[Rfam]
RNA sequence: UUGAUUUUUUCUCUAUUGAUACAUAUAAUAUAAGCGUAAAAACGUUUUACAGUGUACGGCAUAAAAACACUGUUUAUGCAAACACGUUUCGCAAUGUACGGCAAAGAAACAUUGU
Numbered sequence: 001u002u003g004a005u006u007u008u009u010u011c012u013c014u015a016u017u018g019a020u021a022c023a024u025a026u027a028a029u030a031u032a033a034g035c036g037u038a039a040a041a042a043c044g045u046u047u048u049a050c051a052g053u054g055u056a057c058g059g060c061a062u063a064a065a066a067a068c069a070c071u072g073u074u075u076a077u078g079c080a081a082a083c084a085c086g087u088u089u090c091g092c093a094a095u096g097u098a099c100g101g102c103a104a105a106g107a108a109a110c111a112u113u114g115u
Stems, first nucleotide, its partner, number of pairs: 006021001008019001012032001014030005043058003049073007085100003091115007

Shown here is a 115-nucleotide RNA sequence from Lachnoclostridium sp. An169, a member of the family "Fusobacteriales-1 RNA". It is annotated as a cis-regulatory element. A search with the family's covariance model found it, with a score of 67 bits.